[Rfam]
RNA sequence: GGGUGUUCGCCGCCAUAUUCGGAGGUGGGCAGGUUCUUACGCUGGUCGGGCCGCCAGCG
Numbered sequence: 001g002g003g004u005g006u007u008c009g010c011c012g013c014c015a016u017a018u019u020c021g022g023a024g025g026u027g028g029g030c031a032g033g034u035u036c037u038u039a040c041g042c043u044g045g046u047c048g049g050g051c052c053g054c055c056a057g058c059g
Base pairs, nucleotide, nucleotide: 005030006029007028008027009026010025011024040059041058042057043056044055045054046053
RNA: nhaA-I RNA